Shown here is a 46-nucleotide RNA from Phnomibacter ginsenosidimutans, a member of the family "Acido-Lenti-1 RNA". Taxonomically the source falls in Phnomibacter (Bacteria, Pseudomonadati, Bacteroidota, Chitinophagia). The family's consensus secondary structure is taken from published work.
RNA sequence: CCCCGGGGUGAAACCCGGGGCUAUGCUAUUUCGCCCCGUUGGGGCU
Numbered sequence: 001c002c003c004c005g006g007g008g009u010g011a012a013a014c015c016c017g018g019g020g021c022u023a024u025g026c027u028a029u030u031u032c033g034c035c036c037c038g039u040u041g042g043g044g045c046u
Base pairs, nucleotide, nucleotide: 001020002019003018004017005016006015007014033045034044035043036042037041